Shown here is a 138-nucleotide sequence from Paraglaciecola hydrolytica, a member of the family "Bacterial antisense RNA HPnc0260". It scores 64 bits against the family's covariance model. Pairs were carried over by alignment from the consensus structure, which was predicted with CMfinder. On this family, see Sharma et al., Nature 2010: "The primary transcriptome of the major human pathogen Helicobacter pylori". The organism belongs to Paraglaciecola, within Bacteria.

[Rfam]
RNA sequence: AUGGUCACACAAUGGUCACAAAUCUAAAUUAAUGGCUAAAUUAACUUAUUUUGAAUGAAUGAAGAAUUGUGUAAGUUGUUGAAUCUGAAGAGUAAUAGUUGGUACAACCGAGUGGACUCGAACCACCGACCCCUACCA
Numbered sequence: 001a002u003g004g005u006c007a008c009a010c011a012a013u014g015g016u017c018a019c020a021a022a023u024c025u026a027a028a029u030u031a032a033u034g035g036c037u038a039a040a041u042u043a044a045c046u047u048a049u050u051u052u053g054a055a056u057g058a059a060u061g062a063a064g065a066a067u068u069g070u071g072u073a074a075g076u077u078g079u080u081g082a083a084u085c086u087g088a089a090g091a092g093u094a095a096u097a098g099u100u101g102g103u104a105c106a107a108c109c110g111a112g113u114g115g116a117c118u119c120g121a122a123c124c125a126c127c128g129a130c131c132c133c134u135a136c137c138a
Stems, first nucleotide, its partner, number of pairs: 013038003021030002049063003100135003109128002112126004